Shown here is an 81-nucleotide sequence from Canis lupus, a member of the family "mir-8799 microRNA precursor family". The base pairs follow the family's consensus structure, which was predicted with RNAalifold. Its family is annotated with RISC complex and miRNA-mediated post-transcriptional gene silencing in the Gene Ontology. The organism belongs to Canis lupus, within Eukaryota. A search with the family's covariance model found it, with a score of 56 bits.
RNA sequence: GGGGGGAGGUCGGAUCCUGGGCUCUGUCCCGGCGCCCUGGGCUCCCUGGCCUGCGCUGUUGGAAUCGCCGGGCAACCCUCU
Numbered sequence: 001g002g003g004g005g006g007a008g009g010u011c012g013g014a015u016c017c018u019g020g021g022c023u024c025u026g027u028c029c030c031g032g033c034g035c036c037c038u039g040g041g042c043u044c045c046c047u048g049g050c051c052u053g054c055g056c057u058g059u060u061g062g063a064a065u066c067g068c069c070g071g072g073c074a075a076c077c078c079u080c081u
Base pairs, nucleotide, nucleotide: 001081002080003079004078005077006076009073010072016071017070019068025067026066027063028062029061030058031057032056033055034054035053039051041050042049043048